[Rfam]
RNA: MIR4371 microRNA precursor family
RNA sequence: UCGUUAAGUGAUGACAUGACAAACAGAGUGUCACAUCAUCAUGCCAUGUCAUAGACACCUCAUAGCCACAUCAUCAUCUUUAAUGACAUAACAAUGAUGUGUCAAUGACAUGAUGUGAUGACAUGACACUUCGUAUAUCAUAUUAUCACUUAAUGGGA
Numbered sequence: 001u002c003g004u005u006a007a008g009u010g011a012u013g014a015c016a017u018g019a020c021a022a023a024c025a026g027a028g029u030g031u032c033a034c035a036u037c038a039u040c041a042u043g044c045c046a047u048g049u050c051a052u053a054g055a056c057a058c059c060u061c062a063u064a065g066c067c068a069c070a071u072c073a074u075c076a077u078c079u080u081u082a083a084u085g086a087c088a089u090a091a092c093a094a095u096g097a098u099g100u101g102u103c104a105a106u107g108a109c110a111u112g113a114u115g116u117g118a119u120g121a122c123a124u125g126a127c128a129c130u131u132c133g134u135a136u137a138u139c140a141u142a143u144u145a146u147c148a149c150u151u152a153a154u155g156g157g158a
Stems, first nucleotide, its partner, number of pairs: 001156014016141004021136001023134002026131008036121008045112002048109005054103005071086004
Dot-bracket structure: ((((((((((((((.((((.(.((.((((((((..((((((((.((.(((((.(((((............((((........))))............))))).))))).)).))))))))..)))))))).)).).)))).))))))))))))))..